Shown here is an 81-nucleotide sequence from Neotoma lepida, a member of the family "mir-452 microRNA precursor family".
Its family is annotated with RISC complex and miRNA-mediated post-transcriptional gene silencing in the Gene Ontology.
The literature on the family includes a 2010 paper in Blood by Jima et al., "Deep sequencing of the small RNA transcriptome of normal and malignant human B cells identifies hundreds of novel microRNAs".
The organism belongs to Neotoma, within Eukaryota.

RNA sequence: GCUAAGUACUUACAACUGUUUUCAGAGGAAACUGAGACUUUAUAGAUACGUCUCAGUCUCAUCUGCAAAGAAGUGCUUUGC
Numbered sequence: 001g002c003u004a005a006g007u008a009c010u011u012a013c014a015a016c017u018g019u020u021u022u023c024a025g026a027g028g029a030a031a032c033u034g035a036g037a038c039u040u041u042a043u044a045g046a047u048a049c050g051u052c053u054c055a056g057u058c059u060c061a062u063c064u065g066c067a068a069a070g071a072a073g074u075g076c077u078u079u080g081c
Base pairs, nucleotide, nucleotide: 001081002080004078005077006076007075008074013073017071019069020068021067023065024064025063026062028060029059031057032056033055034054035053036052037051041050043048